[Rfam]
Nucleotides: 129
Base pairs, nucleotide, nucleotide: 003057004056005055007054016042017041018040021036022035023034024033025032068122069121070120071119072118083108084107086105087104090101091100092099
Number, partner (000 for none) and nucleotide at each position: 001000a002000g003057g004056c005055a006000g007054g008000c009000u010000c011000c012000a013000g014000c015000g016042u017041g018040g019000g020000g021036g022035g023034g024033c025032c026000u027000g028000g029000c030000g031000u032025g033024g034023c035022u036021c037000c038000c039000a040018c041017c042016a043000u044000u045000c046000c047000u048000g049000c050000a051000g052000c053000g054007c055005u056004g057003c058000c059000a060000g061000a062000g063000c064000a065000u066000c067000c068122c069121g070120g071119g072118g073000c074000c075000g076000u077000u078000u079000g080000a081000g082000g083108c084107c085000a086105c087104c088000c089000c090101c091100g092099g093000c094000a095000c096000c097000u098000c099092c100091c101090g102000g103000a104087g105086g106000c107084g108083g109000u110000u111000a112000u113000g114000g115000a116000a117000a118072c119071c120070c121069c122068g123000g124000a125000c126000a127000c128000c129000c
The family of this 129-nucleotide RNA sequence from Rhodinocichla rosea is "Small nucleolar RNA SNORA9". The family's RNA type in Rfam is H/ACA-box small nucleolar RNA. NCBI's taxonomy places the organism under Eukaryota, Euteleostomi, Dipnotetrapodomorpha, Coelurosauria, Rhodinocichla. Clan: SNORA9 clan.